[Rfam]
RNA sequence: CAAGCCUGCAAGGAUCAGAAGGUCUGAACAGGUCCCUCAGAUCCGUCGAAAGGUUGAACUGAGAUGAAAGGGUGGUUUUUAUGGAUGUCUUUUGUCCACCCGUCAAAGCCCUCCAUGCCUCUCGCUGGCGAGAAAUUUGGAGAGGAAUCAAAAACUAGUCCUAGUU
Numbered sequence: 001c002a003a004g005c006c007u008g009c010a011a012g013g014a015u016c017a018g019a020a021g022g023u024c025u026g027a028a029c030a031g032g033u034c035c036c037u038c039a040g041a042u043c044c045g046u047c048g049a050a051a052g053g054u055u056g057a058a059c060u061g062a063g064a065u066g067a068a069a070g071g072g073u074g075g076u077u078u079u080u081a082u083g084g085a086u087g088u089c090u091u092u093u094g095u096c097c098a099c100c101c102g103u104c105a106a107a108g109c110c111c112u113c114c115a116u117g118c119c120u121c122u123c124g125c126u127g128g129c130g131a132g133a134a135a136u137u138u139g140g141a142g143a144g145g146a147a148u149c150a151a152a153a154a155c156u157a158g159u160c161c162u163a164g165u166u
Base pairs, nucleotide, nucleotide: 007030008029011025012024014023015022016021035066036063037062038061039060040059042057043056047052084160085159086158087155088154090153091152092151093150094149109145110144111142112141113140114139120133121132122131123130124129

The record is a 166-nucleotide part of an RNA from Fusarium napiforme, which matches "Ascomycota telomerase RNA" in Rfam. On this family, see Qi et al., Nucleic Acids Res 2013: "The common ancestral core of vertebrate and fungal telomerase RNAs". The pairing is the family consensus, mapped onto this sequence. Rfam classes the family as a non-coding RNA gene.